Overview: Shown here is a 152-nucleotide RNA sequence from Schmidtea mediterranea, a member of the family "U12 minor spliceosomal RNA". By type it is a spliceosomal small nuclear RNA. The base pairs follow the family's consensus structure. On this family, see Tarn and Steitz, Trends Biochem Sci 1997: "Pre-mRNA splicing: the discovery of a new spliceosome doubles the challenge".

RNA sequence: AUGCCUAAAUCUAAAGAGUAAGGAAAAUAAUGGCUGAGGAGAAAUACCGAGGCCGCCAAGAAUAACUCUUGGGAAAAUUUUUAUAGGCCAAAGGUCGUCCCUGAGUGUCAGCUUACUUUGUUGGCCUCUUGGUGUUAUGAUCUUAAAGGCUU
Number, nucleotide and partner (000 for none) at each position: 001a000002u000003g000004c023005c022006u021007a000008a019009a000010u000011c000012u000013a000014a000015a000016g000017a000018g000019u008020a000021a006022g005023g004024a000025a000026a000027a000028u000029a000030a000031u000032g054033g053034c052035u051036g000037a000038g048039g047040a000041g000042a000043a000044a000045u000046a000047c039048c038049g000050a000051g035052g034053c033054c032055g000056c072057c071058a070059a069060g068061a000062a000063u000064a000065a000066c000067u000068c060069u059070u058071g057072g056073g000074a000075a000076a000077a000078u000079u000080u000081u000082u000083a000084u000085a152086g151087g150088c149089c148090a000091a000092a143093g142094g141095u140096c139097g138098u137099c000100c000101c132102u131103g130104a129105g128106u000107g126108u124109c123110a122111g121112c120113u000114u000115a000116c000117u000118u000119u000120g112121u111122u110123g109124g108125c000126c107127u000128c105129u104130u103131g102132g101133u000134g000135u000136u000137a098138u097139g096140a095141u094142c093143u092144u000145a000146a000147a000148g089149g088150c087151u086152u085